[Rfam]
RNA sequence: ACUCUAAUAGUUUAUUCAAAACACUGGUCUUGUAAACCAGAAACUGAAGGCUAACCACCUUCUUAGAGUU
Numbered sequence: 001a002c003u004c005u006a007a008u009a010g011u012u013u014a015u016u017c018a019a020a021a022c023a024c025u026g027g028u029c030u031u032g033u034a035a036a037c038c039a040g041a042a043a044c045u046g047a048a049g050g051c052u053a054a055c056c057a058c059c060u061u062c063u064u065a066g067a068g069u070u
Base pairs, nucleotide, nucleotide: 001069002068003067004066005065006064007063010022011021012020013019024040025039026038027037028036046062047061048060049059050058